RNA sequence: AGUAGUAGAAGCAUAGAUGGGUGAGAAUCCCAUCCGCCGAAGGGGCUAGGUUUCCUCAGCAAUGUUCGUCAGCUGAGGGUUAGUCGGUCCUAAGUUGCACCGUAAUGCGAGUGUAACAAAAGGGAAACAGGUUAAUAUUCCUGUACCAUUCAUCCUUAGCGUUAAGCGCCGACGCUUCGGGAUAUGCCGGGCACGGUCGUCGCCGUGUCCAAGCAUCGAAGACCGGGGAGUACCGUCAUGGUGAGAACCGGUUGAAUCUGUGAUGGAGUAAUCCGGCAAAGUCCUGGAGCCCAUGAAAAGGUGGGUGAAUGUCCGUACCGAGAACUGACACAGGUGCCCCUAGCUGAAUAGGCUAAGGCGUGU
Numbered sequence: 001a002g003u004a005g006u007a008g009a010a011g012c013a014u015a016g017a018u019g020g021g022u023g024a025g026a027a028u029c030c031c032a033u034c035c036g037c038c039g040a041a042g043g044g045g046c047u048a049g050g051u052u053u054c055c056u057c058a059g060c061a062a063u064g065u066u067c068g069u070c071a072g073c074u075g076a077g078g079g080u081u082a083g084u085c086g087g088u089c090c091u092a093a094g095u096u097g098c099a100c101c102g103u104a105a106u107g108c109g110a111g112u113g114u115a116a117c118a119a120a121a122g123g124g125a126a127a128c129a130g131g132u133u134a135a136u137a138u139u140c141c142u143g144u145a146c147c148a149u150u151c152a153u154c155c156u157u158a159g160c161g162u163u164a165a166g167c168g169c170c171g172a173c174g175c176u177u178c179g180g181g182a183u184a185u186g187c188c189g190g191g192c193a194c195g196g197u198c199g200u201c202g203c204c205g206u207g208u209c210c211a212a213g214c215a216u217c218g219a220a221g222a223c224c225g226g227g228g229a230g231u232a233c234c235g236u237c238a239u240g241g242u243g244a245g246a247a248c249c250g251g252u253u254g255a256a257u258c259u260g261u262g263a264u265g266g267a268g269u270a271a272u273c274c275g276g277c278a279a280a281g282u283c284c285u286g287g288a289g290c291c292c293a294u295g296a297a298a299a300g301g302u303g304g305g306u307g308a309a310u311g312u313c314c315g316u317a318c319c320g321a322g323a324a325c326u327g328a329c330a331c332a333g334g335u336g337c338c339c340c341u342a343g344c345u346g347a348a349u350a351g352g353c354u355a356a357g358g359c360g361u362g363u
Base pairs, nucleotide, nucleotide: 016034017033018032019031020030021029035360036359037358038357043339044338045337046336049319050318054078055077056076057075058074059073063071064070085315086314087313089123090122094117095116096115097114098113099112101109102108127144128143129142130141131140147311148310149309150308151307152306153305154304168302169301170300174290175289176288177287178286179285180284181283182282185278186277187276188275189274190209191208192207193206194205195204213261214260215259222252223251224250225249226248232242233241234240267272325334326333341355342354343353344352
Dot-bracket structure: ...............((((((.......))))))((((....((((..((...((((((...((.....)).))))))......(((.((...((((((.((.....))..))))))....))...(((((........)))))..((((((((.............(((...(((((((((..(((((((((((........))))))...(((......(((((.....(((.....))).....)))))......))).....(....).)))))...))))))))).........))).)))))))).)))..)).....((......)).)))).((((.......)))).))))...